Notes:
U2 spliceosomal RNA: a 197-nucleotide sequence from Neocucurbitaria cava. A reference for the family is Zwieb (1997), "The uRNA database", Nucleic Acids Res. Taxonomically the source falls in Neocucurbitaria (Eukaryota, Opisthokonta, dothideomyceta, Pleosporales). Rfam's curators write: U2 is a small nuclear RNA (snRNA) component of the spliceosome (involved in pre-mRNA splicing). By type it is a spliceosomal small nuclear RNA. The match comes from Rfam's covariance-model search (103 bits).
RNA sequence: CUUGAAGCUUUGCCUUUUGGCUUAGAUCAAGUGUAGUAUCUGUUCUUUCUAGUUUAAUCUCUGGAACGAUCCUACGGGAUCACUCAAGAUUAUUCUUCUUUUUGACAAUCGGUCCGCCUCUCACUGGGCUUGCCCAUAGUUGCGGACACAGUGUCGCCAGUGUAAGUUCACAUCCACUCUUGCUUGCUUGACUCUUU
Number, nucleotide and partner (000 for none) at each position: 001c000002u000003u000004g000005a000006a000007g000008c025009u024010u000011u000012g021013c020014c019015u000016u000017u000018u000019g014020g013021c012022u000023u000024a009025g008026a000027u000028c000029a000030a000031g000032u000033g000034u000035a000036g000037u000038a000039u000040c000041u000042g000043u000044u000045c000046u000047u066048u065049c064050u063051a062052g061053u000054u000055u000056a000057a000058u000059c000060u000061c052062u051063g050064g049065a048066a047067c000068g081069a080070u079071c078072c077073u000074a000075c000076g000077g072078g071079a070080u069081c068082a000083c000084u000085c000086a000087a000088g000089a000090u000091u000092a000093u000094u000095c000096u000097u000098c000099u000100u000101u000102u000103u000104g000105a000106c000107a000108a000109u000110c000111g000112g147113u146114c145115c144116g143117c142118c000119u000120c000121u000122c000123a000124c000125u136126g135127g134128g133129c000130u000131u000132g000133c128134c127135c126136a125137u000138a000139g000140u000141u000142g117143c116144g115145g114146a113147c112148a000149c000150a195151g194152u000153g192154u191155c190156g187157c186158c000159a184160g183161u182162g000163u000164a000165a000166g000167u000168u000169c000170a000171c000172a000173u000174c000175c000176a000177c000178u000179c000180u000181u000182g161183c160184u159185u000186g157187c156188u000189u000190g155191a154192c153193u000194c151195u150196u000197u000